This 73-nucleotide RNA from Octodon degus belongs to the Rfam family "Small nucleolar RNA SNORD26". Lineage of the source: Eukaryota > Opisthokonta > Theria > Boreoeutheria > Octodon. Its family is annotated with RNA processing and nucleolus in the Gene Ontology.

[Rfam]
RNA sequence: CUGCGGGGAUGAUAUAAGAACUGAACUCUCUCUUUCUGAUGGCUCAGUGGGGAAAGCAGAAGUUCUGAGUGGC
Numbered sequence: 001c002u003g004c005g006g007g008g009a010u011g012a013u014a015u016a017a018g019a020a021c022u023g024a025a026c027u028c029u030c031u032c033u034u035u036c037u038g039a040u041g042g043c044u045c046a047g048u049g050g051g052g053a054a055a056g057c058a059g060a061a062g063u064u065c066u067g068a069g070u071g072g073c
Stems, first nucleotide, its partner, number of pairs: 001072004

By type it is a C/D-box small nucleolar RNA. Rfam 15.1 lists 451 matches to the family in 401 species. The family is grouped with related families in Rfam's "SNORD26 clan". On this family, see Tycowski et al., Nature 1996: "A mammalian gene with introns instead of exons generating stable RNA products".